[Rfam]
RAGATH-18 RNA: a 66-nucleotide sequence.
RNA sequence: AUGGAGAGUAUAAAAAAAUGUGAGUAGUGUCUGAUUUAUUCAGCACAAAAACAUACUCGGCGAAAU
Dot-bracket structure: ((...(((((........(((.....(((..((.......)).)))....))))))))......))
Numbered sequence: 001a002u003g004g005a006g007a008g009u010a011u012a013a014a015a016a017a018a019u020g021u022g023a024g025u026a027g028u029g030u031c032u033g034a035u036u037u038a039u040u041c042a043g044c045a046c047a048a049a050a051a052c053a054u055a056c057u058c059g060g061c062g063a064a065a066u
Stems, first nucleotide, its partner, number of pairs: 001066002006058005019053003027046003032042002

Source information:
Rfam describes the family as follows. Actinobacteria, Firmicutes, Fusobacteria, Thermotogae (1 example). Rfam classes the family as a small RNA. Rfam's curators put it in the seed alignment.